The family of this 126-nucleotide RNA sequence from Deinococcus aquiradiocola is "SAM riboswitch aptamer (S box leader)". A search with the family's covariance model found it, with a score of 67 bits. Lineage of the source: Bacteria > Thermotogati > Deinococcota > Deinococcaceae > Deinococcus. Its family is annotated with regulation of gene expression in the Gene Ontology.
RNA sequence: CCUUUAUCCAGAGCGCCCGAGAGACCUGGCUCCACGACGGCGCAGCAACCCGCCCUCAUCACGGCACGGUGCUUCCUCCAGCCGGUAUACGGGUCAACGAUGACCGCUGUACCGGAACGAUAAGGG
Numbered sequence: 001c002c003u004u005u006a007u008c009c010a011g012a013g014c015g016c017c018c019g020a021g022a023g024a025c026c027u028g029g030c031u032c033c034a035c036g037a038c039g040g041c042g043c044a045g046c047a048a049c050c051c052g053c054c055c056u057c058a059u060c061a062c063g064g065c066a067c068g069g070u071g072c073u074u075c076c077u078c079c080a081g082c083c084g085g086u087a088u089a090c091g092g093g094u095c096a097a098c099g100a101u102g103a104c105c106g107c108u109g110u111a112c113c114g115g116a117a118c119g120a121u122a123a124g125g126g
Stems, first nucleotide, its partner, number of pairs: 001126008013043005021032003026081004044073004049069002052065003082115008